[Rfam]
RNA sequence: CCGGAAGUGGCUGAUGACACCAAAAUUCCUGAAUUUCCGUGAUUUGGGAUCAAAGUAAACGCUCUGACACUUCCAGG
Dot-bracket structure: ....((((((.((....)).).......(((((.........)))))....................))))).....
Numbered sequence: 001c002c003g004g005a006a007g008u009g010g011c012u013g014a015u016g017a018c019a020c021c022a023a024a025a026u027u028c029c030u031g032a033a034u035u036u037c038c039g040u041g042a043u044u045u046g047g048g049a050u051c052a053a054a055g056u057a058a059a060c061g062c063u064c065u066g067a068c069a070c071u072u073c074c075a076g077g
Stems, first nucleotide, its partner, number of pairs: 005072005010021001012019002029047005